[Rfam]
RNA sequence: UUUUAGCCCCGAUGGAAACGGCAUCCUCUUGUGGUCUCGUUUUUUUACGAGACCACAAGAGAUAUAGUGGACAGCGGGAUUAGCU
Numbered sequence: 001u002u003u004u005a006g007c008c009c010c011g012a013u014g015g016a017a018a019c020g021g022c023a024u025c026c027u028c029u030u031g032u033g034g035u036c037u038c039g040u041u042u043u044u045u046u047a048c049g050a051g052a053c054c055a056c057a058a059g060a061g062a063u064a065u066a067g068u069g070g071a072c073a074g075c076g077g078g079a080u081u082a083g084c085u
Stems, first nucleotide, its partner, number of pairs: 009077003013073002018068002023063003028059013

Annotation: This 85-nucleotide RNA sequence from Flavobacterium sp. A45 belongs to the Rfam family "Flavo-1 RNA". By type it is a small RNA. The match comes from Rfam's covariance-model search (70 bits).